[Rfam]
RNA: Streptomyces sRNA 4677
RNA sequence: UGCUCCGGCACCGAGAGCGGUCUUUCCCAAAGAACGACGAGGUGAAAGAACCCCACCCAACCCACCCCCUCCCCUCCGCAGGGGCAAACUCACUCGCGAGGGUGAAUAUCGCCAACUCGGCUGGCGUGGCGUUGGGUUGCGCGCUCUACGCUCGGCGCGAGCAGCAGGUCACAAGGCCGCGAAAAUACAUCGGCCCCCGGCCGGGAGUAGCGAUCCCGAUCGAGGGCCUGACCACCGAGGAAAAACCCCAUUCCUG
Dot-bracket structure: ......((........(.((....................................................)))..............((((((....))))))..............(((((...........................)))))...................................(((((.((...((((.......))))...)).)))))......))..((((........))))..